[Rfam]
RNA: Small nucleolar RNA snoR26
Organism: Ziziphus jujuba
RNA sequence: CGAGCAUCAUUGAUGAGUUUAUUAUAUUGUUAACCUUGCACUUUGAUCUCUUGUGAAGAAAAUCCAAAAGAAAAUUUUCUUUGAGAUGCUC
Numbered sequence: 001c002g003a004g005c006a007u008c009a010u011u012g013a014u015g016a017g018u019u020u021a022u023u024a025u026a027u028u029g030u031u032a033a034c035c036u037u038g039c040a041c042u043u044u045g046a047u048c049u050c051u052u053g054u055g056a057a058g059a060a061a062a063u064c065c066a067a068a069a070g071a072a073a074a075u076u077u078u079c080u081u082u083g084a085g086a087u088g089c090u091c
Base pairs, nucleotide, nucleotide: 002091003090004089005088006087007086008085